[Rfam]
tRNA: a 73-nucleotide sequence from Seleniivibrio woodruffii. The match comes from Rfam's covariance-model search (62 bits).
RNA sequence: GGGGGUAUAGCUCAGCUGGGAGAGCGCUACAAUGGCAUUGUAGAGGCCAGCGGUUCGAUCCCGCUUACCUCCA
Numbered sequence: 001g002g003g004g005g006u007a008u009a010g011c012u013c014a015g016c017u018g019g020g021a022g023a024g025c026g027c028u029a030c031a032a033u034g035g036c037a038u039u040g041u042a043g044a045g046g047c048c049a050g051c052g053g054u055u056c057g058a059u060c061c062c063g064c065u066u067a068c069c070u071c072c073a
Stems, first nucleotide, its partner, number of pairs: 001072007010025004027043005049065005